RNA sequence: GAAACAAGUGAUGAUAGCAAGACAGGGACAUCAGAACCCUUCGGGGUUAUGACAGACUACGUCUAUAAUGGGAAUCUCUCUGAUGUUUU
Numbered sequence: 001g002a003a004a005c006a007a008g009u010g011a012u013g014a015u016a017g018c019a020a021g022a023c024a025g026g027g028a029c030a031u032c033a034g035a036a037c038c039c040u041u042c043g044g045g046g047u048u049a050u051g052a053c054a055g056a057c058u059a060c061g062u063c064u065a066u067a068a069u070g071g072g073a074a075u076c077u078c079u080c081u082g083a084u085g086u087u088u089u
Base pairs, nucleotide, nucleotide: 002088003087004086005085006084

Small nucleolar RNA R44/J54/Z268 family: an 89-nucleotide RNA from Triticum aestivum. The family is grouped with related families in Rfam's "SNORD74 clan". Gene Ontology terms of the family: nucleolus and RNA processing. Rfam 15.1 lists 1,168 matches to the family in 228 species. It is annotated as a C/D-box small nucleolar RNA.